Small Cajal body specific RNA 11: a 140-nucleotide RNA sequence from Pedionomus torquatus.
Nucleotides: 140
Stems, first nucleotide, its partner, number of pairs: 002066005010059002026052002028049001030047004079135006088125002092121007099113002101110002
Number, partner (000 for none) and nucleotide at each position: 001000g002066c003065g004064u005063c006062c007000u008000g009000a010059c011058u012000u013000c014000a015000u016000c017000c018000u019000g020000g021000c022000u023000g024000u025000u026052c027051c028049c029000c030047c031046c032045g033044c034000c035000a036000a037000a038000g039000c040000u041000g042000u043000g044033g045032u046031g047030g048000u049028g050000g051027g052026g053000c054000c055000u056000g057000g058011g059010g060000g061000u062006g063005g064004a065003c066002g067000c068000a069000g070000a071000u072000c073000a074000a075000c076000u077000u078000g079135c080134c081133u082132c083131u084130c085000c086000u087000g088125u089124u090000a091000g092121g093120a094119g095118g096117g097116c098115u099113g100112c101110c102109a103000a104000a105000g106000a107000c108000a109102u110101g111000u112100g113099c114000g115098a116097g117096c118095c119094c120093u121092u122000a123000a124089a125088g126000g127000c128000a129000a130084g131083a132082g133081a134080g135079g136000a137000c138000a139000u140000u
On this family, see Darzacq et al., EMBO J 2002: "Cajal body-specific small nuclear RNAs: a novel class of 2'-O-methylation and pseudouridylation guide RNAs". Rfam describes the family as follows. scaRNAs are a specific class of small nuclear RNAs which localise to the Cajal bodies and guide the modification of RNA polymerase II transcribed spliceosomal RNAs U1, U2, U4, U5 and U12. The base pairs follow the family's consensus structure, which was predicted with RNAalifold. By type it is a small Cajal body RNA. Rfam 15.1 lists 853 matches to the family in 557 species.